[Rfam]
RNA sequence: GUUUGAUUGAACGAUAAUUGCCACUUGUUAUGUUCUGAUUGACCAAUGAUUACAAGAAUGCAUUUCAUCGUCCAUCGAGUCAACAUCUCAUGACACGUGACAGUUAUCGUCCAAUCAGAACGUGACACGUGACAGUCAAAAUUC
Numbered sequence: 001g002u003u004u005g006a007u008u009g010a011a012c013g014a015u016a017a018u019u020g021c022c023a024c025u026u027g028u029u030a031u032g033u034u035c036u037g038a039u040u041g042a043c044c045a046a047u048g049a050u051u052a053c054a055a056g057a058a059u060g061c062a063u064u065u066c067a068u069c070g071u072c073c074a075u076c077g078a079g080u081c082a083a084c085a086u087c088u089c090a091u092g093a094c095a096c097g098u099g100a101c102a103g104u105u106a107u108c109g110u111c112c113a114a115u116c117a118g119a120a121c122g123u124g125a126c127a128c129g130u131g132a133c134a135g136u137c138a139a140a141a142u143u144c
Stems, first nucleotide, its partner, number of pairs: 020133001022131002026127001029124003033120004038115003
The record is a 144-nucleotide RNA from Glycine max, which matches "MIR1520 microRNA precursor family" in Rfam. The match comes from Rfam's covariance-model search (72 bits). Clan: MIR1520 microRNA precursor clan. Lineage of the source: Eukaryota > Streptophytina > Embryophyta > Mesangiospermae > Glycine subgen. Soja.